[Rfam]
RNA sequence: GGACUGGCGUAGUCGAGUGGUUACUUCGCAAAACACAAACCGGACUUUUUAACAGUUUACGUGGGUUCGAUCCCCAUAGAUCCACUGACGCAAUUCAGUCCUUUU
Numbered sequence: 001g002g003a004c005u006g007g008c009g010u011a012g013u014c015g016a017g018u019g020g021u022u023a024c025u026u027c028g029c030a031a032a033a034c035a036c037a038a039a040c041c042g043g044a045c046u047u048u049u050u051a052a053c054a055g056u057u058u059a060c061g062u063g064g065g066u067u068c069g070a071u072c073c074c075c076a077u078a079g080a081u082c083c084a085c086u087g088a089c090g091c092a093a094u095u096c097a098g099u100c101c102u103u104u105u
Base pairs, nucleotide, nucleotide: 002100003099004098005097006096007095012089013088014087015086017085018084019083020082026070027069028068

Vault RNA: a 105-nucleotide RNA from Dreissena polymorpha. The family's consensus secondary structure is taken from published work. For this family Rfam cites "Evolution of Vault RNAs" (Stadler et al., Mol Biol Evol, 2009).